[Rfam]
RNA sequence: UAGUGCCCCAAGCUGCGAGGCACUUGUGGUUGGUUUAGUUACUGGAACAAGGGUCAACUGUAAAUUCAAAAGUGAAACAAAUGUGAUCACUGCAGGAAUCUGCAGUGUGGAGACUAGUGAGUCAUAGUAGUGAAAACAGGGCAAGAAAUAAGUCAGCAUGAGUUUUAUGUGGAACAAAUGAGAAAAGCUUUAAAAACAAGAGAAAUAAAGGUGAAAAUUCAGCAUUUGUUGUCAUUUUUUUAUUUUAUUACAGUUAUUUCCCUGG
Numbered sequence: 001u002a003g004u005g006c007c008c009c010a011a012g013c014u015g016c017g018a019g020g021c022a023c024u025u026g027u028g029g030u031u032g033g034u035u036u037a038g039u040u041a042c043u044g045g046a047a048c049a050a051g052g053g054u055c056a057a058c059u060g061u062a063a064a065u066u067c068a069a070a071a072g073u074g075a076a077a078c079a080a081a082u083g084u085g086a087u088c089a090c091u092g093c094a095g096g097a098a099u100c101u102g103c104a105g106u107g108u109g110g111a112g113a114c115u116a117g118u119g120a121g122u123c124a125u126a127g128u129a130g131u132g133a134a135a136a137c138a139g140g141g142c143a144a145g146a147a148a149u150a151a152g153u154c155a156g157c158a159u160g161a162g163u164u165u166u167a168u169g170u171g172g173a174a175c176a177a178a179u180g181a182g183a184a185a186a187g188c189u190u191u192a193a194a195a196a197c198a199a200g201a202g203a204a205a206u207a208a209a210g211g212u213g214a215a216a217a218u219u220c221a222g223c224a225u226u227u228g229u230u231g232u233c234a235u236u237u238u239u240u241u242a243u244u245u246u247a248u249u250a251c252a253g254u255u256a257u258u259u260c261c262c263u264g265g
Stems, first nucleotide, its partner, number of pairs: 003016003026042004077122002080118001087111002091107003095103001128144001130142002132137001149192003152188002199241008209227005251264003